[Rfam]
RNA: mir-278 microRNA precursor family
Organism: Musca domestica
RNA sequence: GGUGCGACCGGAUGAUGGUCCUCAACGACCGUUUUAAUUUAUACUGGUCGGUGGGACUUUCGUCCGUUUGUAAC
Dot-bracket structure: ..(((((.(((((((.(((((.((.(((((...............))))).))))))).))))))).)))))..